[Rfam]
RNA sequence: CAUUUGUAGUCUGAGUAGGUCUGUUUGGACAGAAAACAAUCAUUUUUGCACGGAAGGAGAAUGCAACCAUCGGGAGGAACUCCCGUAAAUAAGUACCUUCAUACAAGCAUCCGGACGCUUCUUGCAUGGUGCCUGUGGCGAGGCAUUUCAUGGGUGUGCGUUAUGUAUCUAAUUACAUACUAGCCAAAAGACAUAAGAUAUAGGAGGUGCAGCUCCAAAAAUGAACAGUG
Numbered sequence: 001c002a003u004u005u006g007u008a009g010u011c012u013g014a015g016u017a018g019g020u021c022u023g024u025u026u027g028g029a030c031a032g033a034a035a036a037c038a039a040u041c042a043u044u045u046u047u048g049c050a051c052g053g054a055a056g057g058a059g060a061a062u063g064c065a066a067c068c069a070u071c072g073g074g075a076g077g078a079a080c081u082c083c084c085g086u087a088a089a090u091a092a093g094u095a096c097c098u099u100c101a102u103a104c105a106a107g108c109a110u111c112c113g114g115a116c117g118c119u120u121c122u123u124g125c126a127u128g129g130u131g132c133c134u135g136u137g138g139c140g141a142g143g144c145a146u147u148u149c150a151u152g153g154g155u156g157u158g159c160g161u162u163a164u165g166u167a168u169c170u171a172a173u174u175a176c177a178u179a180c181u182a183g184c185c186a187a188a189a190g191a192c193a194u195a196a197g198a199u200a201u202a203g204g205a206g207g208u209g210c211a212g213c214u215c216c217a218a219a220a221a222u223g224a225a226c227a228g229u230g
Stems, first nucleotide, its partner, number of pairs: 005042002019030004071085006093210008102202001103161002107157006117125002128147007165201005173182001

Rfam assigns this 230-nucleotide RNA sequence to the family "RT-2 RNA".
It is annotated as a small RNA.